Shown here is a 188-nucleotide RNA sequence, a member of the family "Clostridiales-1 RNA".

RNA sequence: AUUUUGUGAUUAAAGGGUCAAACGGUAUCAUCGAUGCAUGCUUGCAUGCAAUUCGAUGUAUGCCUUAUUGACCCGCACUACACCGAGAAAGUAGCAAUUUGCUGCGGGGACGUAGCAAAUUAGCGGAUUUCGAGGUGGAGUCAGAUUACGGGAAUGCGUAGCAUGUAGUAAUCUGAUUAAUCAUAAAU
Numbered sequence: 001a002u003u004u005u006g007u008g009a010u011u012a013a014a015g016g017g018u019c020a021a022a023c024g025g026u027a028u029c030a031u032c033g034a035u036g037c038a039u040g041c042u043u044g045c046a047u048g049c050a051a052u053u054c055g056a057u058g059u060a061u062g063c064c065u066u067a068u069u070g071a072c073c074c075g076c077a078c079u080a081c082a083c084c085g086a087g088a089a090a091g092u093a094g095c096a097a098u099u100u101g102c103u104g105c106g107g108g109g110a111c112g113u114a115g116c117a118a119a120u121u122a123g124c125g126g127a128u129u130u131c132g133a134g135g136u137g138g139a140g141u142c143a144g145a146u147u148a149c150g151g152g153a154a155u156g157c158g159u160a161g162c163a164u165g166u167a168g169u170a171a172u173c174u175g176a177u178u179a180a181u182c183a184u185a186a187a188u
Base pairs, nucleotide, nucleotide: 005185006184007183008182009181010180011179015074016073017072024065025063026062027061028060029058030057031056032055033053034052035051036049037048038047039046040045079139081137082136083135084134087131088130089129090128094124095123096121097120098119099118100117101116102115103114104113105112106111143174144173145172146171147170148169149168154164155163156162157161
The sequence is in the family's curated seed alignment. The family's RNA type in Rfam is small RNA. The family has 194 seed sequences and 1,172 matches in Rfam 15.1.